[Rfam]
Nucleotides: 144
Base pairs, nucleotide, nucleotide: 013131014130017127018126019125020124023121024120025119026118027117028116029115030114031113032112034110035109036108037107038106040104
Number, partner (000 for none) and nucleotide at each position: 001000a002000u003000c004000a005000c006000u007000g008000u009000c010000g011000u012000c013131u014130c015000u016000a017127a018126u019125u020124c021000g022000c023121u024120u025119g026118g027117u028116g029115c030114a031113g032112g033000u034110c035109g036108g037107g038106a039000a040104u041000g042000c043000u044000u045000c046000g047000c048000u049000c050000u051000g052000u053000a054000g055000c056000u057000g058000c059000c060000g061000u062000c063000u064000c065000c066000u067000u068000c069000c070000u071000c072000u073000c074000g075000c076000a077000a078000g079000a080000u081000u082000c083000c084000a085000u086000u087000u088000c089000u090000u091000u092000a093000c094000g095000g096000g097000c098000g099000a100000a101000c102000g103000g104040a105000u106038u107037c108036c109035c110034g111000c112032c113031u114030u115029g116028c117027a118026u119025c120024a121023a122000c123000u124020g125019a126018a127017u128000c129000g130014g131013a132000g133000a134000u135000g136000g137000c138000u139000g140000u141000g142000a143000a144000g

Rfam assigns this 144-nucleotide RNA from Nelumbo nucifera to the family "MIR168 microRNA precursor family". The organism belongs to Nelumbo, within Eukaryota. The literature on the family includes a 2002 paper in Genes Dev by Reinhart et al., "MicroRNAs in plants". The family's consensus secondary structure was predicted with WAR.